[Rfam]
RNA sequence: UAGAAUUGCAUAAUGAAACCUCAUAUAAGACGGGAAUAGGGCCCGUUCGUCUCUACCUGGGAACCGUAAAUUCCCGGACUAUGAGGGGAGUUCAAGCAUCU
Numbered sequence: 001u002a003g004a005a006u007u008g009c010a011u012a013a014u015g016a017a018a019c020c021u022c023a024u025a026u027a028a029g030a031c032g033g034g035a036a037u038a039g040g041g042c043c044c045g046u047u048c049g050u051c052u053c054u055a056c057c058u059g060g061g062a063a064c065c066g067u068a069a070a071u072u073c074c075c076g077g078a079c080u081a082u083g084a085g086g087g088g089a090g091u092u093c094a095a096g097c098a099u100c101u
Stems, first nucleotide, its partner, number of pairs: 019086007029047006057077007
RNA: Purine riboswitch aptamer
Organism: Halobacillus sp. BBL2006